[Rfam]
The family of this 52-nucleotide RNA from Coregonus sp. 'balchen' is "UnaL2 LINE 3' element". The family has 30 seed sequences and 493,311 matches in Rfam 15.1. The family's RNA type in Rfam is cis-regulatory element. The base pairs follow the family's consensus structure, which is taken from published work. It scores 56 bits against the family's covariance model.
Nucleotides: 052
Stems, first nucleotide, its partner, number of pairs: 013043001014041003020036006
Number, partner (000 for none) and nucleotide at each position: 001000a002000u003000c004000a005000c006000g007000c008000a009000g010000a011000c012000g013043u014041g015040u016039a017000a018000g019000u020036c021035g022034c023033u024032u025031u026000g027000g028000a029000u030000a031025a032024a033023a034022g035021c036020g037000u038000c039016u040015g041014c042000u043013a044000a045000u046000g047000c048000a049000u050000a051000u052000u